This 87-nucleotide sequence from Noviherbaspirillum sedimenti belongs to the Rfam family "c-di-GMP-I riboswitch aptamer". Its Rfam clan is "c-di-GMP_I riboswitch clan".
[Rfam]
RNA sequence: UUUGAUAAACGGUAAACCCGUCUGAAAAGCGGGGGCACAAAGCUACCGGGCUAAGGAACCGUGUUCUAUGCCAGCGGGGUUGCCAAG
Numbered sequence: 001u002u003u004g005a006u007a008a009a010c011g012g013u014a015a016a017c018c019c020g021u022c023u024g025a026a027a028a029g030c031g032g033g034g035g036c037a038c039a040a041a042g043c044u045a046c047c048g049g050g051c052u053a054a055g056g057a058a059c060c061g062u063g064u065u066c067u068a069u070g071c072c073a074g075c076g077g078g079g080u081u082g083c084c085a086a087g
Stems, first nucleotide, its partner, number of pairs: 012038002017033004022029002041081004046077003049072003056066004